[Rfam]
RNA sequence: UGUUGAUAUGAUGAUAACAUUUGCUAAAAAAAAAAUAUUGAUUAAGAAAAAAUCAUACUACAAUUAUCUAAUCAAUG
Dot-bracket structure: ((((((.................................................................))))))